[Rfam]
The record is a 115-nucleotide RNA sequence from Trifolium subterraneum, which matches "MIR2593 microRNA precursor family" in Rfam.

RNA sequence: AUAUGAGAAACAACUUACUUUUUAGGUUCAUUGGAAAACUAAUGUAUUUGUUCUAUAAUGUAGACUAAAUACAUUAGUUUUCCAAUGAACCUAAAAAGUAGGUUGUUUCUUAUAU
Numbered sequence: 001a002u003a004u005g006a007g008a009a010a011c012a013a014c015u016u017a018c019u020u021u022u023u024a025g026g027u028u029c030a031u032u033g034g035a036a037a038a039c040u041a042a043u044g045u046a047u048u049u050g051u052u053c054u055a056u057a058a059u060g061u062a063g064a065c066u067a068a069a070u071a072c073a074u075u076a077g078u079u080u081u082c083c084a085a086u087g088a089a090c091c092u093a094a095a096a097a098g099u100a101g102g103u104u105g106u107u108u109c110u111u112a113u114a115u
Stems, first nucleotide, its partner, number of pairs: 002114006009107005015101011027089018049067002052064001
Notes: The family has 7 seed sequences and 1,262 matches in Rfam 15.1. Gene Ontology terms of the family: RISC complex and miRNA-mediated post-transcriptional gene silencing.